The family of this 213-nucleotide RNA from Lysinibacillus sphaericus is "Bacillus sRNA ncr1575".
It is one of the family's seed sequences.
The literature on the family includes a 2010 paper in Nucleic Acids Res by Irnov et al., "Identification of regulatory RNAs in Bacillus subtilis".

Nucleotides: 213
Base pairs, nucleotide, nucleotide: 015109016108017107023104024103025102026101030097031096042095043094044093045092046091047090048088049087050086051085052084053083057078058076059075060074061073062072064070117164118163119162124156125155126154127153128152130150182208183207184206185205186204187203188202189201190200191199192198
Number, partner (000 for none) and nucleotide at each position: 001000u002000a003000u004000a005000c006000a007000a008000u009000u010000a011000u012000g013000a014000g015109a016108g017107g018000a019000c020000u021000g022000a023104u024103g025102g026101a027000u028000g029000a030097a031096c032000a033000a034000u035000g036000a037000u038000g039000a040000a041000c042095u043094a044093a045092u046091c047090u048088a049087u050086a051085u052084u053083u054000u055000a056000a057078g058076u059075u060074g061073a062072a063000a064070u065000c066000a067000a068000u069000u070064a071000c072062u073061u074060c075059a076058a077000a078057c079000u080000a081000c082000a083053a084052a085051a086050u087049a088048u089000a090047g091046g092045a093044u094043u095042a096031g097030u098000c099000u100000g101026u102025c103024c104023a105000u106000u107017u108016u109015u110000a111000u112000u113000c114000a115000u116000c117164a118163g119162u120000u121000u122000a123000u124156a125155c126154u127153u128152u129000a130150u131000u132000u133000g134000u135000c136000a137000u138000u139000u140000u141000c142000c143000u144000a145000u146000g147000g148000c149000a150130a151000a152128a153127a154126g155125g156124u157000c158000c159000u160000u161000u162119a163118u164117u165000a166000u167000u168000a169000c170000c171000u172000g173000u174000a175000a176000c177000c178000g179000a180000c181000u182208a183207a184206u185205c186204c187203u188202u189201c190200c191199a192198a193000u194000g195000a196000a197000a198192u199191u200190g201189g202188g203187g204186g205185g206184a207183u208182u209000u210000u211000u212000u213000u